[Rfam]
RNA: Nitrogen stress-induced RNA 1
Organism: Cylindrospermum stagnale
RNA sequence: UGGUAGAUGCACCCUGAUAACUAACUCCCCCUGUUGGCUAACACCCGCUGGGGGUUUUUUCG
Numbered sequence: 001u002g003g004u005a006g007a008u009g010c011a012c013c014c015u016g017a018u019a020a021c022u023a024a025c026u027c028c029c030c031c032u033g034u035u036g037g038c039u040a041a042c043a044c045c046c047g048c049u050g051g052g053g054g055u056u057u058u059u060u061c062g
Base pairs, nucleotide, nucleotide: 002013003012004011027054028053029052030051031050033048034047036045037044